About this RNA: The family of this 74-nucleotide sequence from Alligator mississippiensis is "Mammalian CPEB3 ribozyme".
RNA sequence: CUUGUAUGCUAGGCCAUAGCAGAAGUACUCCUGGCAGGGCCCUGUCAGAUUCCAAUGAAUCUGUGAAUUCUGCU
Numbered sequence: 001c002u003u004g005u006a007u008g009c010u011a012g013g014c015c016a017u018a019g020c021a022g023a024a025g026u027a028c029u030c031c032u033g034g035c036a037g038g039g040c041c042c043u044g045u046c047a048g049a050u051u052c053c054a055a056u057g058a059a060u061c062u063g064u065g066a067a068u069u070c071u072g073c074u
Base pairs, nucleotide, nucleotide: 008042012041013040014039015038018074019073020072021071022070023069024068026036046063047062048061049060050059051058052057

Annotation:
NCBI's taxonomy places the organism under Eukaryota, Bilateria, Dipnotetrapodomorpha, Alligatorinae, Alligator. Rfam describes the family as follows. The mammalian CPEB3 ribozyme is a self cleaving RNA located in the second intron of the CPEB3 gene which belongs to a family of genes regulating messenger RNA polyadenylation. Rfam links the family to the GO term RNA nuclease activity. The match comes from Rfam's covariance-model search (44 bits).